RNA sequence: GGUUCCAUAGUGUAAUGGCUAUCACUCCAGACUCUGACACAAUUAUUUUAGGUUCCGCAUAAUAAUCAAACACGUAGAACCGAAAAUAACCUUGAAGAUAUCUGGCAAUCUGGGUUCGAAUCCCGGUGGGACCU
Numbered sequence: 001g002g003u004u005c006c007a008u009a010g011u012g013u014a015a016u017g018g019c020u021a022u023c024a025c026u027c028c029a030g031a032c033u034c035u036g037a038c039a040c041a042a043u044u045a046u047u048u049u050a051g052g053u054u055c056c057g058c059a060u061a062a063u064a065a066u067c068a069a070a071c072a073c074g075u076a077g078a079a080c081c082g083a084a085a086a087u088a089a090c091c092u093u094g095a096a097g098a099u100a101u102c103u104g105g106c107a108a109u110c111u112g113g114g115u116u117c118g119a120a121u122c123c124c125g126g127u128g129g130g131a132c133c134u
Base pairs, nucleotide, nucleotide: 001133002132003131004130005129006128007127010025011024012023027105028104029103030102031101110126111125112124113123114122
tRNA: a 134-nucleotide RNA from Euroglyphus maynei.
Rfam's curators write: Transfer RNA (tRNA) molecules are approximately 80 nucleotides in length.
The source organism's lineage runs through Eukaryota, Chelicerata, Arachnida, Pyroglyphinae and Euroglyphus.